[Rfam]
Description:
A member of the RNA family "Y RNA" from Chlorocebus sabaeus, 111 nucleotides long. Rfam describes the family as follows. Y RNAs are components of the Ro ribonucleoprotein particle (Ro RNP), in association with Ro60 and La proteins. The Y RNAs and Ro60 and La proteins are well conserved, but the function of the Ro RNP is not known. In humans the RNA component can be one of four small RNAs -- hY1, hY3, hY4 and hY5. A search with the family's covariance model found it, with a score of 47 bits. The organism belongs to Chlorocebus, within Eukaryota.
RNA sequence: GGCUGGCCAAAGGUAGUGAGUUAUCUCAAUUGAUAGUUCACUUUCAGUUACAGAUCAAGCUCUUUUUCUACUCUUUCUCGCCUUCUCGCUACUACAUUUGACUAGUCUUAC
Dot-bracket structure: (((((((.((..((((((((.........................((....................))...............))))))...))..))).))))))....